[Rfam]
RNA sequence: UCAUUCUUUCGGGGCAGGGUGAAAUUCCCAACCGGCGGUAAAGCUUUACGGCAAGCCCGCGACCUGCAUCGUCCCUGACGAUGUGGCUGAUCCAGUGGAAGUCUGGAGCCGACAGUGAGAGUCUGGAUGGGAGAAAGAAUUG
Numbered sequence: 001u002c003a004u005u006c007u008u009u010c011g012g013g014g015c016a017g018g019g020u021g022a023a024a025u026u027c028c029c030a031a032c033c034g035g036c037g038g039u040a041a042a043g044c045u046u047u048a049c050g051g052c053a054a055g056c057c058c059g060c061g062a063c064c065u066g067c068a069u070c071g072u073c074c075c076u077g078a079c080g081a082u083g084u085g086g087c088u089g090a091u092c093c094a095g096u097g098g099a100a101g102u103c104u105g106g107a108g109c110c111g112a113c114a115g116u117g118a119g120a121g122u123c124u125g126g127a128u129g130g131g132a133g134a135a136a137g138a139a140u141u142g
Stems, first nucleotide, its partner, number of pairs: 003140008017029003031122002033111002035060004055109002064086002091107005113125003

Rfam assigns this 142-nucleotide RNA from Salinicoccus roseus to the family "FMN riboswitch aptamer (RFN element)". The source organism's lineage runs through Bacteria, Bacillota, Bacilli, Staphylococcaceae and Salinicoccus. The family's consensus secondary structure is taken from published work.